[Rfam]
RNA sequence: UGAUGCCAGGGUCAAAAGGUCUAAGCCCACAUGAGCUUGCUCAUAGGUGGAUGAAAGACCUUAGGACCCGCCUCGAUAUGAGCAUAAAAGUGGGGCGUAAGCACCAUGAUAUGCGAAUAGCGGGUAGGAUUGUGGGAGUGCGUAGCAUGAAACAAUCCGUAGGCAUCA
Dot-bracket structure: (((((((..((((...((((((.(.((..((((((....))))).)..)).)...))))))...))))...((((.(((..((((.......((((....)).)).....))))..))).))))..(((((((....((((...))))...)))))))...)))))))
Overview
Rfam assigns this 168-nucleotide sequence from [Ruminococcus] lactaris to the family "Clostridiales-1 RNA". Rfam's curators put it in the seed alignment. The base pairs follow the family's consensus structure, which is taken from published work. Rfam classes the family as a small RNA.